The family of this 130-nucleotide sequence from Parambassis ranga is "Small nucleolar RNA ACA64".

[Rfam]
RNA sequence: UGAGACUGAAAAUCUUCCCAGACUUUACAGUGGUCUGUGGUUAGAUAACUUAGCCUAAAUUACUCUGGUGCUUUAGCUUAUCGCCAGCUCUGCAUAGUAGCUGAGUGAUAAAACCCAUGCGCCAACAAAU
Numbered sequence: 001u002g003a004g005a006c007u008g009a010a011a012a013u014c015u016u017c018c019c020a021g022a023c024u025u026u027a028c029a030g031u032g033g034u035c036u037g038u039g040g041u042u043a044g045a046u047a048a049c050u051u052a053g054c055c056u057a058a059a060u061u062a063c064u065c066u067g068g069u070g071c072u073u074u075a076g077c078u079u080a081u082c083g084c085c086a087g088c089u090c091u092g093c094a095u096a097g098u099a100g101c102u103g104a105g106u107g108a109u110a111a112a113a114c115c116c117a118u119g120c121g122c123c124a125a126c127a128a129a130u
Stems, first nucleotide, its partner, number of pairs: 008049001010046001013043001016040001021035004067123001069121003073117001078111005086102003
Record summary
Lineage of the source: Eukaryota > Teleostomi > Teleostei > Euacanthomorphacea > Parambassis. The family's consensus secondary structure was predicted with WAR. The literature on the family includes a 2006 paper in RNA by Schattner et al., "A computational screen for mammalian pseudouridylation guide H/ACA RNAs". By type it is an H/ACA-box small nucleolar RNA.